The record is a 72-nucleotide sequence from Haemonchus contortus, which matches "mir-87 microRNA precursor family" in Rfam.

RNA sequence: GUCUCGCCGCCUGAACCUUUCGUCUCAACCUCUAUGCCGGGCAGGUGAGCAAAGUUUCAGGUGUGCGAGCGG
Number, nucleotide and partner (000 for none) at each position: 001g000002u000003c069004u068005c067006g066007c065008c063009g062010c061011c060012u059013g058014a057015a000016c000017c054018u053019u052020u051021c000022g000023u000024c049025u048026c047027a046028a000029c045030c044031u043032c000033u000034a000035u000036g000037c000038c000039g000040g000041g000042c000043a031044g030045g029046u027047g026048a025049g024050c000051a020052a019053a018054g017055u000056u000057u014058c013059a012060g011061g010062u009063g008064u000065g007066c006067g005068a004069g003070c000071g000072g000

Notes:
Lineage of the source: Eukaryota > Bilateria > Chromadorea > Rhabditomorpha > Haemonchus.